[Rfam]
RNA sequence: UCCAUUGCGAAAUGGAAUCUGAAGGAAGCUGGAGGCAAAUCUCCGACCCGAGGAACACGAUUCUCAUACAAGGCCGUCUUUCUUGGACGAGGCUGCAAAACAAGCCGAAAUCCUUACGACCAAAGGGAAGGGCUGGUAAAUGAGGCGGGUACAUGGAGAGGAAGUUGUGCGC
Numbered sequence: 001u002c003c004a005u006u007g008c009g010a011a012a013u014g015g016a017a018u019c020u021g022a023a024g025g026a027a028g029c030u031g032g033a034g035g036c037a038a039a040u041c042u043c044c045g046a047c048c049c050g051a052g053g054a055a056c057a058c059g060a061u062u063c064u065c066a067u068a069c070a071a072g073g074c075c076g077u078c079u080u081u082c083u084u085g086g087a088c089g090a091g092g093c094u095g096c097a098a099a100a101c102a103a104g105c106c107g108a109a110a111u112c113c114u115u116a117c118g119a120c121c122a123a124a125g126g127g128a129a130g131g132g133c134u135g136g137u138a139a140a141u142g143a144g145g146c147g148g149g150u151a152c153a154u155g156g157a158g159a160g161g162a163a164g165u166u167g168u169g170c171g172c
Base pairs, nucleotide, nucleotide: 001016002015003014004013005012006011028172029171032168035165036164040159041158042157043156044155045154046150047149048148049147050146062145063144064143065142066141067140073137074136075135077131078130079129080128081127082126083125085113086112087111091106092105093104094103
Dot-bracket structure: ((((((....))))))...........((..(..((...(((((((((((...........((((((.....(((.(((((((.(((...((((........))))....)))...........)))))))...)))..)))))))))))...))))))....))..)..))
A member of the RNA family "Group II catalytic intron D1-D4-3" from Alteribacillus bidgolensis, 172 nucleotides long.
A search with the family's covariance model found it, with a score of 136 bits.
NCBI's taxonomy places the organism under Bacteria, Bacillati, Bacillota, Caryophanales, Alteribacillus.